[Rfam]
RNA sequence: UAGAGGAUGAUGAAAGCAAUCAGACGGAUUCCCAUUGAUUUAUCAUAUGAGAACAUUACCAGCUACUUCUGACUCUC
Numbered sequence: 001u002a003g004a005g006g007a008u009g010a011u012g013a014a015a016g017c018a019a020u021c022a023g024a025c026g027g028a029u030u031c032c033c034a035u036u037g038a039u040u041u042a043u044c045a046u047a048u049g050a051g052a053a054c055a056u057u058a059c060c061a062g063c064u065a066c067u068u069c070u071g072a073c074u075c076u077c
Stems, first nucleotide, its partner, number of pairs: 002076004

The record is a 77-nucleotide RNA sequence from Hibiscus trionum, which matches "Small nucleolar RNA R12" in Rfam.
Rfam describes the family as follows. snoR12 is a C/D box small nucleolar RNA, which acts as a methylation guide for 25S ribosomal RNA in plants. snoR12 has been alternatively named snoZ44 in Arabidopsis and snoZ131 in rice.
By type it is a C/D-box small nucleolar RNA.
Lineage of the source: Eukaryota > Pentapetalae > Malvaceae > Malvoideae > Hibiscus.
Its family is annotated with nucleolus and RNA processing in the Gene Ontology.
On this family, see Chen et al., Nucleic Acids Res 2003: "The high diversity of snoRNAs in plants: identification and comparative study of 120 snoRNA genes from Oryza sativa".